small nucleolar RNA snoR134: a 144-nucleotide RNA from Beta vulgaris. Lineage of the source: Eukaryota > Streptophytina > Embryophyta > Tracheophyta > Beta vulgaris. Rfam classes the family as an H/ACA-box small nucleolar RNA. The literature on the family includes a 2009 paper in Nucleic Acids Res by Chen and Wu, "Mining small RNA sequencing data: a new approach to identify small nucleolar RNAs in Arabidopsis". The family's consensus secondary structure was predicted with RNAalifold. It scores 90 bits against the family's covariance model.
RNA sequence: CUGCACGUUGCACCCCGGGCUUCUCUGAAUAUAAGAAAUAUGACGAAAAAAGUCCCAAUGCUCGUGCUAGAUUAUUGUGCCGUUCGUGUUGCAGUUUAGCCUUUCUUUUCUGGCUGAUUUGUGUCUUAAUCAACGGUCAAAUGU
Numbered sequence: 001c002u003g004c005a006c007g008u009u010g011c012a013c014c015c016c017g018g019g020c021u022u023c024u025c026u027g028a029a030u031a032u033a034a035g036a037a038a039u040a041u042g043a044c045g046a047a048a049a050a051a052g053u054c055c056c057a058a059u060g061c062u063c064g065u066g067c068u069a070g071a072u073u074a075u076u077g078u079g080c081c082g083u084u085c086g087u088g089u090u091g092c093a094g095u096u097u098a099g100c101c102u103u104u105c106u107u108u109u110c111u112g113g114c115u116g117a118u119u120u121g122u123g124u125c126u127u128a129a130u131c132a133a134c135g136g137u138c139a140a141a142u143g144u
Stems, first nucleotide, its partner, number of pairs: 003067005010061002017055005022049001024046002079137006088125001090123005099114003